[Rfam]
RNA sequence: CGCGUUUUUCGCCCAGGCGGAGCUCGACCGCCGACUGAAGUCUUGAGGGCCUUCGUUGACAAGCAUCGCGAUGCAUAUGGGGUCGAGCCGCUCUGCAAAGUUCUGCAGAUUGCCCCG
Numbered sequence: 001c002g003c004g005u006u007u008u009u010c011g012c013c014c015a016g017g018c019g020g021a022g023c024u025c026g027a028c029c030g031c032c033g034a035c036u037g038a039a040g041u042c043u044u045g046a047g048g049g050c051c052u053u054c055g056u057u058g059a060c061a062a063g064c065a066u067c068g069c070g071a072u073g074c075a076u077a078u079g080g081g082g083u084c085g086a087g088c089c090g091c092u093c094u095g096c097a098a099a100g101u102u103c104u105g106c107a108g109a110u111u112g113c114c115c116c117g
Stems, first nucleotide, its partner, number of pairs: 016032005078117005089112002092109006
ALIL pseudoknot: a 117-nucleotide sequence from Diaphorobacter aerolatus. By type it is a cis-regulatory element. NCBI's taxonomy places the organism under Bacteria, Pseudomonadati, Betaproteobacteria, Comamonadaceae, Diaphorobacter. The family has 26 seed sequences and 2,146 matches in Rfam 15.1. Pairs were carried over by alignment from the consensus structure, which is taken from published work. It scores 112 bits against the family's covariance model.